[Rfam]
RNA sequence: ACACGGAAAGGAGGUGGUCCGAAGAAUGAAUUCGUCUUGGACAUGUGAGGUGGCUGUCCGCUAGUCGCGGACCCCAGUUCAGCACCAACUGGACCGGUGACGGCGAAUACCCGCAGUCAUCCGACCCGCAGGGUGCCGAGUGUGUCCGCUCGGUGAGGGGCCUGAGCCCCAGCCCUGCGGGUCGUCCACG
Numbered sequence: 001a002c003a004c005g006g007a008a009a010g011g012a013g014g015u016g017g018u019c020c021g022a023a024g025a026a027u028g029a030a031u032u033c034g035u036c037u038u039g040g041a042c043a044u045g046u047g048a049g050g051u052g053g054c055u056g057u058c059c060g061c062u063a064g065u066c067g068c069g070g071a072c073c074c075c076a077g078u079u080c081a082g083c084a085c086c087a088a089c090u091g092g093a094c095c096g097g098u099g100a101c102g103g104c105g106a107a108u109a110c111c112c113g114c115a116g117u118c119a120u121c122c123g124a125c126c127c128g129c130a131g132g133g134u135g136c137c138g139a140g141u142g143u144g145u146c147c148g149c150u151c152g153g154u155g156a157g158g159g160g161c162c163u164g165a166g167c168c169c170c171a172g173c174c175c176u177g178c179g180g181g182u183c184g185u186c187c188a189c190g
Base pairs, nucleotide, nucleotide: 013058014057015056016055017054018053059105060104061103062102065099067098068097070095073092074091122184123183124182125181126180127179128178129177130176131175132174133173134172136153137152138151139150140149141148

Shown here is a 190-nucleotide RNA sequence from Aeromicrobium sp. Root472D3, a member of the family "Actinobacteria sRNA Ms_IGR-5". The organism belongs to Aeromicrobium, within Bacteria. The family's RNA type in Rfam is small RNA. The base pairs follow the family's consensus structure.